[Rfam]
RNA sequence: GUUCCAGAGUCACAGUGCCAAGUACCUAGCUUGCUGUGCGGCAACCCCCUUCCAUCGAGUGGGGUGCCCUAGGGGAAGAACCGGCCCGUCGGCACCAGCUGUCGGGCAAGUCGAUGGA
Numbered sequence: 001g002u003u004c005c006a007g008a009g010u011c012a013c014a015g016u017g018c019c020a021a022g023u024a025c026c027u028a029g030c031u032u033g034c035u036g037u038g039c040g041g042c043a044a045c046c047c048c049c050u051u052c053c054a055u056c057g058a059g060u061g062g063g064g065u066g067c068c069c070u071a072g073g074g075g076a077a078g079a080a081c082c083g084g085c086c087c088g089u090c091g092g093c094a095c096c097a098g099c100u101g102u103c104g105g106g107c108a109a110g111u112c113g114a115u116g117g118a
Stems, first nucleotide, its partner, number of pairs: 001081004009039001011038006021031002040068003045064003049059002084107005090101004